[Rfam]
RNA sequence: CCGGGGUCGGUGCGAGAUCCCGCGGCAGGGACGGGGGACCCAGUGUUCGUGGCCCGGAUCGUGGUCCGGGUCUUGGGGUGAAGUGCGUGGCCGGUCCUUCGGGGCCGGGUGCGUGCCGGGCGUUCUCCCGCCCGAACCCGACAGCUCACCUCGUAGGCAGCCAGGAGAGGCCUU
Dot-bracket structure: ((.........................)).((((((....((...............................))(((.....((((((....................))))))..((((........))))...))).........))))))....................
Background
Rfam assigns this 174-nucleotide RNA from Georgenia soli to the family "c-di-AMP riboswitch aptamer (ydaO/yuaA leader)". It scores 47 bits against the family's covariance model. Rfam 15.1 lists 7,607 matches to the family in 2,262 species.